A member of the RNA family "Lysine riboswitch aptamer" from Hominimerdicola alba, 190 nucleotides long. For this family Rfam cites "Riboswitches Control Fundamental Biochemical Pathways in Bacillus subtilis and Other Bacteria" (Mandal et al., Cell, 2003). A search with the family's covariance model found it, with a score of 88 bits.

[Rfam]
RNA sequence: AGAACAGAUAGAGGUGCAGUUGAAAAGAGUAACACGGUCUGACCCCGAAAGGUCAAAGCAGCCCAUGCCUACAGACCGAUGUGAAAGGUAAAACUGCCGAAGCCUGCGGCGCGGGAACCCGCUUGCUGACUGAUGGUUCAACAGAUCAUCGGUUGUCAUCAUGACUUUAUGAUGGAGUGCUAUCGGCGGA
Numbered sequence: 001a002g003a004a005c006a007g008a009u010a011g012a013g014g015u016g017c018a019g020u021u022g023a024a025a026a027g028a029g030u031a032a033c034a035c036g037g038u039c040u041g042a043c044c045c046c047g048a049a050a051g052g053u054c055a056a057a058g059c060a061g062c063c064c065a066u067g068c069c070u071a072c073a074g075a076c077c078g079a080u081g082u083g084a085a086a087g088g089u090a091a092a093a094c095u096g097c098c099g100a101a102g103c104c105u106g107c108g109g110c111g112c113g114g115g116a117a118c119c120c121g122c123u124u125g126c127u128g129a130c131u132g133a134u135g136g137u138u139c140a141a142c143a144g145a146u147c148a149u150c151g152g153u154u155g156u157c158a159u160c161a162u163g164a165c166u167u168u169a170u171g172a173u174g175g176a177g178u179g180c181u182a183u184c185g186g187c188g189g190a
Stems, first nucleotide, its partner, number of pairs: 007184005016097006024089001032082003035078007101127003106122004128154011156175007